Shown here is a 66-nucleotide RNA sequence from Microtus ochrogaster, a member of the family "mir-718 microRNA precursor family".
The family has 4 seed sequences and 56 matches in Rfam 15.1.
[Rfam]
RNA sequence: AAAGCCGCGGAGGGCAAGAUGGCGGCGAGCCUGAGCACCGCCUCUUCCGCCCUCCCGGGCGUUGCA
Numbered sequence: 001a002a003a004g005c006c007g008c009g010g011a012g013g014g015c016a017a018g019a020u021g022g023c024g025g026c027g028a029g030c031c032u033g034a035g036c037a038c039c040g041c042c043u044c045u046u047c048c049g050c051c052c053u054c055c056c057g058g059g060c061g062u063u064g065c066a
Stems, first nucleotide, its partner, number of pairs: 003063003006059001008057003012052004018047002021044002024042004029036002
The family's consensus secondary structure was predicted with RNAalifold.